RNA sequence: GUCGCGGGCCGGGCCCCUCUGGCGCGUGUCGGGAAUGGCGCGCGUGAUGUCGGACCGCAUCG
Numbered sequence: 001g002u003c004g005c006g007g008g009c010c011g012g013g014c015c016c017c018u019c020u021g022g023c024g025c026g027u028g029u030c031g032g033g034a035a036u037g038g039c040g041c042g043c044g045u046g047a048u049g050u051c052g053g054a055c056c057g058c059a060u061c062g
Stems, first nucleotide, its partner, number of pairs: 006056002009053004022045008